[Rfam]
RNA sequence: GUUAACCUUUUGUUACAAAAAAUCGACAACAAAAGGGGAAAACAGAUUUGAGAACUUAAUGUGGCUUUUAAAAAUAAGUGGGGGAAUCAUCGUUUAUUUUUAGUUCAGGCUGCGGCUCAAUAGAAGCGAUUGCGUUAUACGCAAUCAUAUUUUUAACCCAAAAGAAAAGUAGUGCAAACAAUAUGA
Dot-bracket structure: .((..((((((((...............))))))))..)).......(((((.......((((((..(((((((((((((((....))..))))))))))))).....)))))).))))).....((((((((((...))))))))..((((((..........))))))...))...........
Numbered sequence: 001g002u003u004a005a006c007c008u009u010u011u012g013u014u015a016c017a018a019a020a021a022a023u024c025g026a027c028a029a030c031a032a033a034a035g036g037g038g039a040a041a042a043c044a045g046a047u048u049u050g051a052g053a054a055c056u057u058a059a060u061g062u063g064g065c066u067u068u069u070a071a072a073a074a075u076a077a078g079u080g081g082g083g084g085a086a087u088c089a090u091c092g093u094u095u096a097u098u099u100u101u102a103g104u105u106c107a108g109g110c111u112g113c114g115g116c117u118c119a120a121u122a123g124a125a126g127c128g129a130u131u132g133c134g135u136u137a138u139a140c141g142c143a144a145u146c147a148u149a150u151u152u153u154u155a156a157c158c159c160a161a162a163a164g165a166a167a168a169g170u171a172g173u174g175c176a177a178a179c180a181a182u183a184u185g186a
Stems, first nucleotide, its partner, number of pairs: 002040002006036008048120005060114006068103013081088002126175002128146008149170006
Rfam assigns this 186-nucleotide RNA sequence from Mannheimia granulomatis to the family "nqrA-II ncRNA motif". The source organism's lineage runs through Bacteria, Pseudomonadati, Pasteurellales, Mannheimia and Mannheimia granulomatis.